[Rfam]
RNA sequence: UGGGCCGAGAGGCGCUGCAACGGACUGGGGUCCGCCACGCUCGGCCCGGACGACCAUUCCGAAGGGCGCCUCCCACUU
Numbered sequence: 001u002g003g004g005c006c007g008a009g010a011g012g013c014g015c016u017g018c019a020a021c022g023g024a025c026u027g028g029g030g031u032c033c034g035c036c037a038c039g040c041u042c043g044g045c046c047c048g049g050a051c052g053a054c055c056a057u058u059c060c061g062a063a064g065g066g067c068g069c070c071u072c073c074c075a076c077u078u
Stems, first nucleotide, its partner, number of pairs: 002047007021034005
RNA: SAH (S-adenosyl-L-homocysteine) riboswitch aptamer